Background: Rfam assigns this 60-nucleotide RNA from Syrrhaptes paradoxus to the family "U7 small nuclear RNA". Rfam's curators write: Animal histone pre-mRNAs are spliced by a different mechanism than nuclear pre-mRNAs and self-splicing introns. This processing involves the U7 snRNP, which contains only one RNA species: U7. The 5' end of U7 RNA is thought to base-pair to a conserved spacer element downstream of the cleavage site in histone pre-mRNA. This family contains a number of annotated U7 pseudogenes. Lineage of the source: Eukaryota > Eumetazoa > Deuterostomia > Dinosauria > Syrrhaptes.
RNA sequence: UAGUGAUUUCAGCUCUUUUAGUAUUUGUCCAGCAGGUUUCUCGCGGUGCGGGAAGCCCCA
Numbered sequence: 001u002a003g004u005g006a007u008u009u010c011a012g013c014u015c016u017u018u019u020a021g022u023a024u025u026u027g028u029c030c031a032g033c034a035g036g037u038u039u040c041u042c043g044c045g046g047u048g049c050g051g052g053a054a055g056c057c058c059c060a
Base pairs, nucleotide, nucleotide: 035057036056037055038054039053040052041051042050043049044048